[Rfam]
The family of this 67-nucleotide sequence from Sediminicoccus sp. KRV36 is "terC RNA".
Rfam classes the family as a cis-regulatory element.
RNA sequence: GCGGCGAUCCGGGCCCCUCUGGCGCGUGUGAAGGAAAACUUCACCCGCGCGAUGUCGGAUGUUUUUG
Numbered sequence: 001g002c003g004g005c006g007a008u009c010c011g012g013g014c015c016c017c018u019c020u021g022g023c024g025c026g027u028g029u030g031a032a033g034g035a036a037a038a039c040u041u042c043a044c045c046c047g048c049g050c051g052a053u054g055u056c057g058g059a060u061g062u063u064u065u066u067g
Stems, first nucleotide, its partner, number of pairs: 007060006022050005028044006